[Rfam]
RNA sequence: UGUCAGGAACCCCGUGUAUGAUGAAUUAUCUGACCCGGCCGUUGCCUCUCAUGUAACGCUUCUCAUGGCUCUCACUGCA
Numbered sequence: 001u002g003u004c005a006g007g008a009a010c011c012c013c014g015u016g017u018a019u020g021a022u023g024a025a026u027u028a029u030c031u032g033a034c035c036c037g038g039c040c041g042u043u044g045c046c047u048c049u050c051a052u053g054u055a056a057c058g059c060u061u062c063u064c065a066u067g068g069c070u071c072u073c074a075c076u077g078c079a
Stems, first nucleotide, its partner, number of pairs: 001079002004077003007073002012068005020062002023059001026056004031051003037046003